[Rfam]
RNA sequence: UGGACAUUUCUGUUUAUUCAGUUUCUUCUCAAGGUGAAGAUAAUACUUUAUAAUUAUCCUAGGGAAAUAUAAUGGUUUUCUGUUCACCCUUUGUAAGUUAAAAGAGUAUAUCGUUCCACUGCUGACAUUU
Dot-bracket structure: .(((.(.((.(.........((((((((.......))))).))).....).)).).)))..........((.(((.............((((........))))..............))).))......
Numbered sequence: 001u002g003g004a005c006a007u008u009u010c011u012g013u014u015u016a017u018u019c020a021g022u023u024u025c026u027u028c029u030c031a032a033g034g035u036g037a038a039g040a041u042a043a044u045a046c047u048u049u050a051u052a053a054u055u056a057u058c059c060u061a062g063g064g065a066a067a068u069a070u071a072a073u074g075g076u077u078u079u080c081u082g083u084u085c086a087c088c089c090u091u092u093g094u095a096a097g098u099u100a101a102a103a104g105a106g107u108a109u110a111u112c113g114u115u116c117c118a119c120u121g122c123u124g125a126c127a128u129u130u
Stems, first nucleotide, its partner, number of pairs: 002059003006055001008053002011050001021044003024040005070124002073121003089104004